This 131-nucleotide RNA from Pseudomonas syringae belongs to the Rfam family "rmf RNA". Taxonomically the source falls in Pseudomonas syringae pv. syringae (Bacteria, Gammaproteobacteria, Pseudomonadales, Pseudomonas). The family's RNA type in Rfam is cis-regulatory element. It is one of the family's seed sequences.
[Rfam]
Nucleotides: 131
Stems, first nucleotide, its partner, number of pairs: 021043009049072007078093006095111006
Number, partner (000 for none) and nucleotide at each position: 001000u002000u003000g004000g005000u006000u007000a008000g009000a010000a011000a012000u013000c014000g015000u016000c017000u018000c019000a020000g021043g022042u023041c024040a025039u026038c027037g028036c029035u030000g031000c032000a033000a034000u035029g036028g037027u038026g039025a040024u041023g042022g043021c044000a045000u046000c047000a048000a049072g050071g051070c052069c053068c054067g055066c056000g057000a058000c059000g060000c061000c062000g063000g064000c065000a066055g067054c068053g069052g070051g071050c072049c073000c074000c075000a076000a077000c078093g079092g080091c081090a082089g083088a084000a085000g086000a087000u088083u089082c090081u091080g092079c093078c094000c095111g096110a097109c098108c099107u100106c101000a102000a103000c104000a105000c106100g107099g108098g109097g110096u111095c112000u113000c114000a115000g116000g117000g118000a119000u120000a121000u122000u123000a124000c125000a126000g127000u128000c129000a130000a131000c